A member of the RNA family "Glycine riboswitch aptamer" from Erythrobacter neustonensis, 110 nucleotides long. Taxonomically the source falls in Erythrobacter (Bacteria, Alphaproteobacteria, Sphingomonadales, Erythrobacteraceae).
RNA sequence: UGACACUCUGGAAAGCGUCUUUUGCCGGUAUGGCAAAAGGCCACCGAAGGGGAGGUUGGUCGUCUUUGCGGCCUGCCGAAGCUCUCAGGUCACCCGACAGAGGGGGCAGU
Numbered sequence: 001u002g003a004c005a006c007u008c009u010g011g012a013a014a015g016c017g018u019c020u021u022u023u024g025c026c027g028g029u030a031u032g033g034c035a036a037a038a039g040g041c042c043a044c045c046g047a048a049g050g051g052g053a054g055g056u057u058g059g060u061c062g063u064c065u066u067u068g069c070g071g072c073c074u075g076c077c078g079a080a081g082c083u084c085u086c087a088g089g090u091c092a093c094c095c096g097a098c099a100g101a102g103g104g105g106g107c108a109g110u
Stems, first nucleotide, its partner, number of pairs: 004104001006102005017041009043090003046086002050084003054077002